The family of this 149-nucleotide RNA from Aquabacterium soli is "ZMP/ZTP riboswitch aptamer (pfl RNA motif)".
Taxonomically the source falls in Aquabacterium (Bacteria, Pseudomonadati, Pseudomonadota, Burkholderiales).
A search with the family's covariance model found it, with a score of 50 bits.

RNA sequence: GGGUCUCCGCGCAACUGGCGAUACAUGGCGCCCGGCUGGUCUUCUUGACCAAUCAUGGGUGGCCUGAGGUGGUGAACCACCGGGAAGCGCGGCGCGCGAUGGGCUGAUGUUCGGCCCUCGCGGAUCAGCCGUUCGCCUGGGCAGCCCUC
Numbered sequence: 001g002g003g004u005c006u007c008c009g010c011g012c013a014a015c016u017g018g019c020g021a022u023a024c025a026u027g028g029c030g031c032c033c034g035g036c037u038g039g040u041c042u043u044c045u046u047g048a049c050c051a052a053u054c055a056u057g058g059g060u061g062g063c064c065u066g067a068g069g070u071g072g073u074g075a076a077c078c079a080c081c082g083g084g085a086a087g088c089g090c091g092g093c094g095c096g097c098g099a100u101g102g103g104c105u106g107a108u109g110u111u112c113g114g115c116c117c118u119c120g121c122g123g124a125u126c127a128g129c130c131g132u133u134c135g136c137c138u139g140g141g142c143a144g145c146c147c148u149c
Stems, first nucleotide, its partner, number of pairs: 005094001007092006015084002017137005069080004126144001128142003
Pairs were carried over by alignment from the consensus structure, which is taken from published work.